Rfam assigns this 107-nucleotide sequence from Zea mays to the family "Small nucleolar RNA Z107/R87".
Its family is annotated with nucleolus and RNA processing in the Gene Ontology.
[Rfam]
RNA sequence: GAUGGCAGUGACGACUGGGUAAUAUUCAAGCUCAACAUAUCAAAUCACAGGUCUCUCUGUACACGAGAUCGAUCUUUAUGCAGAUUUUUCUGUUGAAUAGAUCCAUC
Numbered sequence: 001g002a003u004g005g006c007a008g009u010g011a012c013g014a015c016u017g018g019g020u021a022a023u024a025u026u027c028a029a030g031c032u033c034a035a036c037a038u039a040u041c042a043a044a045u046c047a048c049a050g051g052u053c054u055c056u057c058u059g060u061a062c063a064c065g066a067g068a069u070c071g072a073u074c075u076u077u078a079u080g081c082a083g084a085u086u087u088u089u090c091u092g093u094u095g096a097a098u099a100g101a102u103c104c105a106u107c
Stems, first nucleotide, its partner, number of pairs: 001107005
Notes: A search with the family's covariance model found it, with a score of 87 bits. Rfam 15.1 lists 783 matches to the family in 221 species. The organism belongs to Zea, within Eukaryota. Pairs were carried over by alignment from the consensus structure, which was predicted with RNAfold. The literature on the family includes a 2001 paper in J Mol Biol by Barneche et al., "Identification of 66 box C/D snoRNAs in Arabidopsis thaliana: extensive gene duplications generated multiple isoforms predicting new ribosomal RNA 2'-O-methylation sites".